[Rfam]
RNA sequence: ACACCGAAGGGAGGUGAUCGGGUACAUGAGUGAAACCCGGACGCGUGAGGUGGCUGCGGGCUAGCGGCCCGCCACCACACCGAGUGCGGUGCCGGACCAGCGCGUGACAGACGCGUGCAGCCGGCCCAAUCCCAGGCAGUCACCCGACCCGCGAGUCGCCGGUACGUCCGGCCGGCCCCUCUUUCGGAGGGCCAGACUCGCGGGUCGUCUGCG
Numbered sequence: 001a002c003a004c005c006g007a008a009g010g011g012a013g014g015u016g017a018u019c020g021g022g023u024a025c026a027u028g029a030g031u032g033a034a035a036c037c038c039g040g041a042c043g044c045g046u047g048a049g050g051u052g053g054c055u056g057c058g059g060g061c062u063a064g065c066g067g068c069c070c071g072c073c074a075c076c077a078c079a080c081c082g083a084g085u086g087c088g089g090u091g092c093c094g095g096a097c098c099a100g101c102g103c104g105u106g107a108c109a110g111a112c113g114c115g116u117g118c119a120g121c122c123g124g125c126c127c128a129a130u131c132c133c134a135g136g137c138a139g140u141c142a143c144c145c146g147a148c149c150c151g152c153g154a155g156u157c158g159c160c161g162g163u164a165c166g167u168c169c170g171g172c173c174g175g176c177c178c179c180u181c182u183u184u185c186g187g188a189g190g191g192c193c194a195g196a197c198u199c200g201c202g203g204g205u206c207g208u209c210u211g212c213g
Stems, first nucleotide, its partner, number of pairs: 014057003018053001059126004064121002067118002070115003145207013158176006